The record is a 73-nucleotide RNA from Drosophila willistoni, which matches "mir-2 microRNA precursor family" in Rfam. The base pairs follow the family's consensus structure, which was predicted with PFOLD. On this family, see Lee and Ambros, Science 2001: "An extensive class of small RNAs in Caenorhabditis elegans". Taxonomically the source falls in Sophophora (Eukaryota, Muscomorpha, Ephydroidea, Drosophila). Rfam's curators put it in the seed alignment.

[Rfam]
RNA sequence: GGUCGCGUCAAAAUGACUGUGAGCUAUGUUAACCGGUCAGAAAUUCAUAUCACAGCCAUUUUGACGAGUUCGA
Numbered sequence: 001g002g003u004c005g006c007g008u009c010a011a012a013a014u015g016a017c018u019g020u021g022a023g024c025u026a027u028g029u030u031a032a033c034c035g036g037u038c039a040g041a042a043a044u045u046c047a048u049a050u051c052a053c054a055g056c057c058a059u060u061u062u063g064a065c066g067a068g069u070u071c072g073a
Stems, first nucleotide, its partner, number of pairs: 006066010017055006025049003